[Rfam]
RNA sequence: ACCAUUCAUAUCCUUGGAACAAUUCCUAAUAGAAUGUUAUUAUUACAACAAUCUUUAGCAAGACUUUCGAGAUAAGGAUGG
Numbered sequence: 001a002c003c004a005u006u007c008a009u010a011u012c013c014u015u016g017g018a019a020c021a022a023u024u025c026c027u028a029a030u031a032g033a034a035u036g037u038u039a040u041u042a043u044u045a046c047a048a049c050a051a052u053c054u055u056u057a058g059c060a061a062g063a064c065u066u067u068c069g070a071g072a073u074a075a076g077g078a079u080g081g
Base pairs, nucleotide, nucleotide: 002081003080004079005078007076009074010073011072012071014070019065023061024060026058027057028056029055031054032053033052035050036049037048038045039044

mir-2582 microRNA precursor family: an 81-nucleotide RNA sequence from Drosophila melanogaster. Taxonomically the source falls in Sophophora (Eukaryota, Ecdysozoa, Pterygota, Diptera). Pairs were carried over by alignment from the consensus structure, which was predicted with RNAalifold.